[Rfam]
RNA sequence: UUCGCGAAUGCCUUGAAGACUCCAUCUAAGCCCAUGGUCGCCGGUUCGAAUCCGGCUCCCGCCUCGGCGGGGUAGCUCAGCGGUAGAGCAUGGAAGAUGUCUUCGACCUCCUUGUCGCGAAUCC
Numbered sequence: 001u002u003c004g005c006g007a008a009u010g011c012c013u014u015g016a017a018g019a020c021u022c023c024a025u026c027u028a029a030g031c032c033c034a035u036g037g038u039c040g041c042c043g044g045u046u047c048g049a050a051u052c053c054g055g056c057u058c059c060c061g062c063c064u065c066g067g068c069g070g071g072g073u074a075g076c077u078c079a080g081c082g083g084u085a086g087a088g089c090a091u092g093g094a095a096g097a098u099g100u101c102u103u104c105g106a107c108c109u110c111c112u113u114g115u116c117g118c119g120a121a122u123c124c
Base pairs, nucleotide, nucleotide: 002120003119004118005117006116007115013106014105015104016103017102018101019100023093033092034091035090040056041055042054043053044052047083057072058071059070060069061068062067075089076088077087078086